RNA sequence: ACGCCUCGUGCGUCCGCGGGCUUCAAGGGGCCCACGUGGUGGGGGUGGUGCCGUGUCGGCGCAGCACCACCCUCACCGG
Numbered sequence: 001a002c003g004c005c006u007c008g009u010g011c012g013u014c015c016g017c018g019g020g021c022u023u024c025a026a027g028g029g030g031c032c033c034a035c036g037u038g039g040u041g042g043g044g045g046u047g048g049u050g051c052c053g054u055g056u057c058g059g060c061g062c063a064g065c066a067c068c069a070c071c072c073u074c075a076c077c078g079g
Stems, first nucleotide, its partner, number of pairs: 001013004015036002018033002021029002039076013053062003

Description: The family of this 79-nucleotide RNA sequence is "Streptomyces RNA 6106". The match comes from Rfam's covariance-model search (60 bits). The pairing is the family consensus, mapped onto this sequence. A reference for the family is Vockenhuber et al. (2011), "Deep sequencing-based identification of small non-coding RNAs in Streptomyces coelicolor", RNA Biol.